[Rfam]
RNA sequence: GAUAAUAUUGGGCAAACCCGUACGAAAGACGGGGGCGCAAAGCCGUGGGUCUACGAAUUAGUGACCAGUGGCCGGUGACUAUGUGGCUACUGACCACUGAUUUAUGACAGCCUGGUUGCCGCA
Number, nucleotide and partner (000 for none) at each position: 001g000002a000003u000004a000005a000006u000007a000008u000009u000010g000011g000012g038013c037014a000015a000016a000017c033018c032019c031020g030021u029022a000023c028024g000025a000026a000027a000028g023029a021030c020031g019032g018033g017034g000035g000036c000037g013038c012039a000040a000041a117042g116043c115044c114045g000046u000047g112048g111049g108050u107051c106052u000053a000054c000055g000056a102057a101058u100059u099060a098061g097062u096063g095064a000065c000066c000067a000068g000069u000070g000071g000072c000073c000074g000075g000076u000077g000078a000079c000080u000081a000082u000083g000084u000085g000086g000087c000088u000089a000090c000091u000092g000093a000094c000095c063096a062097c061098u060099g059100a058101u057102u056103u000104a000105u000106g051107a050108c049109a000110g000111c048112c047113u000114g044115g043116u042117u041118g000119c000120c000121g000122c000123a000
Description: c-di-GMP-I riboswitch aptamer: a 123-nucleotide RNA from Thermincola carboxydiphila. About the family: GEMM was predicted in a large-scale screen for bacterial structured RNA regulatory elements. Its family is annotated with cyclic-di-GMP binding in the Gene Ontology. The match comes from Rfam's covariance-model search (59 bits).